[Rfam]
Nucleotides: 054
Stems, first nucleotide, its partner, number of pairs: 013043001015040002020036006
Number, partner (000 for none) and nucleotide at each position: 001000c002000u003000c004000u005000g006000u007000a008000a009000c010000u011000g012000u013043u014000u015040u016039a017000a018000g019000u020036c021035g022034c023033u024032u025031u026000g027000g028000a029000u030000a031025a032024a033023a034022g035021c036020g037000u038000c039016u040015g041000c042000u043013a044000a045000a046000u047000g048000g049000c050000a051000u052000a053000u054000u